Source information: A member of the RNA family "Rhizobiales-2 RNA" from Nitrobacter winogradskyi, 97 nucleotides long. Rfam's curators put it in the seed alignment.

RNA sequence: GGGAGGCCAAACUCCCCGAGGCUAUAUCAGGCGCGAGCGCCCAUCCACCCCAGCGCCCAUAUGGCUUGACCCGUCCGGUUGUCCCCCCGGACGGGUC
Numbered sequence: 001g002g003g004a005g006g007c008c009a010a011a012c013u014c015c016c017c018g019a020g021g022c023u024a025u026a027u028c029a030g031g032c033g034c035g036a037g038c039g040c041c042c043a044u045c046c047a048c049c050c051c052a053g054c055g056c057c058c059a060u061a062u063g064g065c066u067u068g069a070c071c072c073g074u075c076c077g078g079u080u081g082u083c084c085c086c087c088c089g090g091a092c093g094g095g096u097c
Stems, first nucleotide, its partner, number of pairs: 001016005019067009030057005068097011
Annotation:
The organism belongs to Nitrobacter winogradskyi, within Bacteria.